[Rfam]
Background:
A member of the RNA family "DUF3800-II RNA", 72 nucleotides long. It is one of the family's seed sequences. It is annotated as a small RNA.
RNA sequence: AUAACAAGGCGCCGAUGACAAAUCUCCGUGUGAGAGAGUCCCGUUUAAACUGGACUAGUCGGUAUCCUGGCC
Numbered sequence: 001a002u003a004a005c006a007a008g009g010c011g012c013c014g015a016u017g018a019c020a021a022a023u024c025u026c027c028g029u030g031u032g033a034g035a036g037a038g039u040c041c042c043g044u045u046u047a048a049a050c051u052g053g054a055c056u057a058g059u060c061g062g063u064a065u066c067c068u069g070g071c072c
Stems, first nucleotide, its partner, number of pairs: 007068003012062005023035004037056005043050001